Notes
Rfam assigns this 158-nucleotide RNA from Parahoeflea phototrophica to the family "6S / SsrS RNA". A search with the family's covariance model found it, with a score of 83 bits. The family has 150 seed sequences and 5,006 matches in Rfam 15.1. The family's consensus secondary structure is taken from published work.
[Rfam]
RNA sequence: UGCGAUCUGCGCUUCUCGACAGGAUACACAAUCCCCGGGGCCUUAAUAGAUCCUAAGGGAGCUGUCCCUGACCGGGCCCGUGGGCCCGGACAUAUGGCGCCCACCUACGUUGUAGGUUCCCGGGAUCGAAAAAAUCCAUCGGCUGCCGUGGGUCGCAC
Number, nucleotide and partner (000 for none) at each position: 001u000002g156003c155004g154005a153006u152007c151008u150009g149010c148011g147012c145013u000014u000015c142016u000017c141018g140019a139020c000021a000022g000023g000024a000025u000026a000027c000028a000029c000030a000031a000032u125033c124034c123035c122036c000037g120038g119039g118040g117041c116042c115043u000044u000045a000046a000047u000048a000049g000050a000051u000052c000053c000054u000055a000056a000057g102058g101059g100060a000061g098062c097063u096064g095065u094066c000067c000068c000069u000070g000071a000072c089073c088074g087075g086076g085077c000078c000079c000080g000081u000082g000083g000084g000085c076086c075087c074088g073089g072090a000091c000092a000093u000094a065095u064096g063097g062098c061099g000100c059101c058102c057103a000104c000105c000106u000107a000108c000109g000110u000111u000112g000113u000114a000115g042116g041117u040118u039119c038120c037121c000122g035123g034124g033125a032126u000127c000128g000129a000130a000131a000132a000133a000134a000135u000136c000137c000138a000139u019140c018141g017142g015143c000144u000145g012146c000147c011148g010149u009150g008151g007152g006153u005154c004155g003156c002157a000158c000